[Rfam]
RNA: U5 spliceosomal RNA
Organism: Sipha flava
Nucleotides: 117
Base pairs, nucleotide, nucleotide: 003080004079005078006077010067011066012065013064014063015062016061017060018059019058028054029053030052031051033049034048035047105117106116107115
Number, partner (000 for none) and nucleotide at each position: 001000c002000a003080a004079u005078u006077c007000c008000g009000a010067u011066u012065c013064c014063c015062u016061u017060u018059u019058a020000a021000a022000u023000c024000g025000u026000a027000a028054a029053a030052a031051u032000c033049u034048u035047u036000c037000g038000c039000c040000u041000u042000u043000u044000a045000c046000u047035a048034a049033a050000c051031a052030u053029u054028u055000g056000c057000g058019u059018g060017g061016a062015g063014g064013g065012g066011a067010g068000c069000a070000u071000u072000c073000a074000a075000a076000g077006g078005a079004g080003u081000c082000u083000a084000g085000a086000a087000u088000u089000c090000a091000a092000u093000u094000u095000u096000u097000u098000u099000u100000u101000a102000a103000u104000a105117u106116u107115g108000a109000u110000c111000a112000u113000u114000a115107u116106a117105a